About this RNA: This 58-nucleotide RNA sequence from Celerinatantimonas diazotrophica belongs to the Rfam family "Pseudomonas sRNA P26". It is annotated as a non-coding RNA gene. The literature on the family includes a 2006 paper in Nucleic Acids Res by Livny et al., "Identification of 17 Pseudomonas aeruginosa sRNAs and prediction of sRNA-encoding genes in 10 diverse pathogens using the bioinformatic tool sRNAPredict2". From the family's description: This small RNA (sRNA) was computationally identified in the genome of the opportunistic pathogen Pseudomonas aeruginosa and its expression verified by northern blot analysis. P26 is conserved across many Gammaproteobacteria species and appears to be consistently located between the DNA directed RNA polymerase (beta subunit) and 50S ribosomal protein L7/L12 genes. Pairs were carried over by alignment from the consensus structure, which was predicted with RNAalifold.

RNA sequence: UUAUAGUAGAUUACAGCCUGAAUAAGGCAUUGGCUGGUGAUUUUUUAAUCACCGGCCU
Numbered sequence: 001u002u003a004u005a006g007u008a009g010a011u012u013a014c015a016g017c018c019u020g021a022a023u024a025a026g027g028c029a030u031u032g033g034c035u036g037g038u039g040a041u042u043u044u045u046u047a048a049u050c051a052c053c054g055g056c057c058u
Stems, first nucleotide, its partner, number of pairs: 016028003032057010